[Rfam]
RNA sequence: CCCGCCACUGCGCUUGCCUACUUUCAGCCGUGGCUUGCGCAUUCCAGUGGUGAGCUGAGAGGAAAAAACCCUUUCAAGGAAACAGAGCUAUUCUCUCCGUGGGUAAUUCUGUGCCGAAGACUGGGAACAUAA
Numbered sequence: 001c002c003c004g005c006c007a008c009u010g011c012g013c014u015u016g017c018c019u020a021c022u023u024u025c026a027g028c029c030g031u032g033g034c035u036u037g038c039g040c041a042u043u044c045c046a047g048u049g050g051u052g053a054g055c056u057g058a059g060a061g062g063a064a065a066a067a068a069c070c071c072u073u074u075c076a077a078g079g080a081a082a083c084a085g086a087g088c089u090a091u092u093c094u095c096u097c098c099g100u101g102g103g104u105a106a107u108u109c110u111g112u113g114c115c116g117a118a119g120a121c122u123g124g125g126a127a128c129a130u131a132a
Stems, first nucleotide, its partner, number of pairs: 005050006018037001020035001021032001022030001069125003073120002078115002083111005091103003
RNA: Small nucleolar RNA SNORA65
Organism: Thamnophis sirtalis